The family of this 67-nucleotide RNA from Bombyx mori is "mir-2774 microRNA precursor family".
A search with the family's covariance model found it, with a score of 59 bits.
For this family Rfam cites "MicroRNAs of Bombyx mori identified by Solexa sequencing" (Liu et al., BMC Genomics, 2010).
[Rfam]
RNA sequence: ACAACAUUGGGACCGUCGGUCUACCAAGUAAUAACAACCACUCGGUGGAAAAUCUUCCCCCCUUUGU
Numbered sequence: 001a002c003a004a005c006a007u008u009g010g011g012a013c014c015g016u017c018g019g020u021c022u023a024c025c026a027a028g029u030a031a032u033a034a035c036a037a038c039c040a041c042u043c044g045g046u047g048g049a050a051a052a053u054c055u056u057c058c059c060c061c062c063u064u065u066g067u
Base pairs, nucleotide, nucleotide: 004067005066006065010058011057012056015053016052020049021048022047023046024045025044027042028041029040
The organism belongs to Bombyx, within Eukaryota.